A member of the RNA family "MIR854 microRNA precursor family" from Arabidopsis thaliana, 221 nucleotides long. Gene Ontology terms of the family: miRNA-mediated post-transcriptional gene silencing and RISC complex. It scores 204 bits against the family's covariance model.
[Rfam]
RNA sequence: UGGAUGAAGACAGAGAAGUGGAGUUUGACACUUGCAUGUAUCAUUUUAGUGAACAUGUACCUCCAGCGAGGGAAAGCAAGAGCUUGAGUGAAGCUCAUAGGAAUAAAAACAAGCUGUAGAAGUGGUGCAAGAAGCAGGACAAGCUACUCACCAAGUGCCUCAAGACUAUCAAGUUUCUGACAGAUAAGCUGAGCUAUUCCUCUUCCACUACAGCUAUUCCA
Dot-bracket structure: ((((........(.((((.(((((...........................................................................................................................................................................))))).))))..).........))))